The record is a 168-nucleotide RNA, which matches "RT-2 RNA" in Rfam. It is annotated as a small RNA.
[Rfam]
RNA sequence: CGGGCACGCGCCCGUAAAGACGCAUCCCGCUGGGAGGGCAGUCCGCUCCUUGCAUGGCCGCGAGCUUCGGCGCUCGACGCGGUUUCAUUGCUCCUCCCUAAGCGGCCUGGGAACGCCGGCGCCCAUAGGCGCAGGCCGUGCGGGAUGCCAUCAUGAAUAGCGAUGAGC
Numbered sequence: 001c002g003g004g005c006a007c008g009c010g011c012c013c014g015u016a017a018a019g020a021c022g023c024a025u026c027c028c029g030c031u032g033g034g035a036g037g038g039c040a041g042u043c044c045g046c047u048c049c050u051u052g053c054a055u056g057g058c059c060g061c062g063a064g065c066u067u068c069g070g071c072g073c074u075c076g077a078c079g080c081g082g083u084u085u086c087a088u089u090g091c092u093c094c095u096c097c098c099u100a101a102g103c104g105g106c107c108u109g110g111g112a113a114c115g116c117c118g119g120c121g122c123c124c125a126u127a128g129g130c131g132c133a134g135g136c137c138g139u140g141c142g143g144g145a146u147g148c149c150a151u152c153a154u155g156a157a158u159a160g161c162g163a164u165g166a167g168c
Stems, first nucleotide, its partner, number of pairs: 001014004022148008031140001032098004036093005045053002056084006102139005108128001109120001